Rfam assigns this 101-nucleotide sequence from Gracilibacillus dipsosauri to the family "SAM riboswitch aptamer (S box leader)". Taxonomically the source falls in Gracilibacillus (Bacteria, Bacillota, Bacilli, Caryophanales).
[Rfam]
RNA sequence: UUCUUAUCCAGAGAGGUGGAGGGACUGGCCCUUUGAAGCCUCAGCAACAGACUAUUCCAAGUACUGUGCUAAUUCCAGUAGCGAUCGCUAGAAGAUAAGAA
Numbered sequence: 001u002u003c004u005u006a007u008c009c010a011g012a013g014a015g016g017u018g019g020a021g022g023g024a025c026u027g028g029c030c031c032u033u034u035g036a037a038g039c040c041u042c043a044g045c046a047a048c049a050g051a052c053u054a055u056u057c058c059a060a061g062u063a064c065u066g067u068g069c070u071a072a073u074u075c076c077a078g079u080a081g082c083g084a085u086c087g088c089u090a091g092a093a094g095a096u097a098a099g100a101a
Stems, first nucleotide, its partner, number of pairs: 001101008013042005021031003025078004043070004048066002051062003074093001079090004